[Rfam]
RNA: Glycine riboswitch aptamer
Organism: Streptomyces sp. CB02414
RNA sequence: GCACAUCUGAAAAGCGGGCCGCCGUCCGACGGCUGCCCCACCCAAGGUGCAAGCCCUGAUCGCCGUACUCCGGUGGUCGUGGCGAACCUCUCAGGUUCCGAUGACAGAUGGGGAGGA
Numbered sequence: 001g002c003a004c005a006u007c008u009g010a011a012a013a014g015c016g017g018g019c020c021g022c023c024g025u026c027c028g029a030c031g032g033c034u035g036c037c038c039c040a041c042c043c044a045a046g047g048u049g050c051a052a053g054c055c056c057u058g059a060u061c062g063c064c065g066u067a068c069u070c071c072g073g074u075g076g077u078c079g080u081g082g083c084g085a086a087c088c089u090c091u092c093a094g095g096u097u098c099c100g101a102u103g104a105c106a107g108a109u110g111g112g113g114a115g116g117a
Stems, first nucleotide, its partner, number of pairs: 002112001004110006016038004040096003044091001047090001049088001053083002
Dot-bracket structure: .(.((((((......((((...............)))).(((.(..(.(...((...........................))....).))..)))........)))))).).....